[Rfam]
RNA sequence: AAAAAGUAACAGGGGAGCCGAUGUGGCUGAGAGUGGGCUAUUAAGUCCUGACCCUCAAACCUGAUCUGGGUAAUGCCAGCGUAGGGAAGUCAUUUGAAGUGUGGA
Numbered sequence: 001a002a003a004a005a006g007u008a009a010c011a012g013g014g015g016a017g018c019c020g021a022u023g024u025g026g027c028u029g030a031g032a033g034u035g036g037g038c039u040a041u042u043a044a045g046u047c048c049u050g051a052c053c054c055u056c057a058a059a060c061c062u063g064a065u066c067u068g069g070g071u072a073a074u075g076c077c078a079g080c081g082u083a084g085g086g087a088a089g090u091c092a093u094u095u096g097a098a099g100u101g102u103g104g105a
Base pairs, nucleotide, nucleotide: 006093007092009090010089011055012054013053014052016049017027018026019025020024035048036047037046038045060085061084062083063082066079067078068077069076